[Rfam]
RNA sequence: UUUUAUGGACAAUGAUAACCAUAAAGAUACCUGGAAUAAUUUUACCAAAUUCGUUUUGUGGG
Numbered sequence: 001u002u003u004u005a006u007g008g009a010c011a012a013u014g015a016u017a018a019c020c021a022u023a024a025a026g027a028u029a030c031c032u033g034g035a036a037u038a039a040u041u042u043u044a045c046c047a048a049a050u051u052c053g054u055u056u057u058g059u060g061g062g
Base pairs, nucleotide, nucleotide: 001026002025003024004023005022006021007020008019030062031061032060033059034057035056036054037053039051
This 62-nucleotide RNA sequence from Pelagibacterales bacterium SAG-MED19 belongs to the Rfam family "pntA sRNA".
The family's consensus secondary structure is taken from published work.
NCBI's taxonomy places the organism under Bacteria, Pseudomonadati, Pseudomonadota, Alphaproteobacteria, Candidatus Pelagibacterales.
It scores 78 bits against the family's covariance model.
It is annotated as a small RNA.
The literature on the family includes a 2009 paper in BMC Genomics by Meyer et al., "Identification of candidate structured RNAs in the marine organism 'Candidatus Pelagibacter ubique'".